A member of the RNA family "SAM riboswitch aptamer (S box leader)" from Asanoa hainanensis, 134 nucleotides long. Pairs were carried over by alignment from the consensus structure, which is taken from published work. Taxonomically the source falls in Asanoa (Bacteria, Actinomycetes, Micromonosporales, Micromonosporaceae).

[Rfam]
RNA sequence: ACCUCAUCCAGAGGGGCUGAGGGAUACGGCCCGAAGACGCCCCGGCAACCACCGCCGUCGACUCAUCGCUGAGUCGCGGUGCGCAGGUGCCAAUUCCGUCCCCGUCGCACGGUGCGGCGUGGGGAAGAUGAGAG
Numbered sequence: 001a002c003c004u005c006a007u008c009c010a011g012a013g014g015g016g017c018u019g020a021g022g023g024a025u026a027c028g029g030c031c032c033g034a035a036g037a038c039g040c041c042c043c044g045g046c047a048a049c050c051a052c053c054g055c056c057g058u059c060g061a062c063u064c065a066u067c068g069c070u071g072a073g074u075c076g077c078g079g080u081g082c083g084c085a086g087g088u089g090c091c092a093a094u095u096c097c098g099u100c101c102c103c104g105u106c107g108c109a110c111g112g113u114g115c116g117g118c119g120u121g122g123g124g125a126a127g128a129u130g131a132g133a134g
Stems, first nucleotide, its partner, number of pairs: 003132006013043005021032003026099004044091004049087002095126001100123003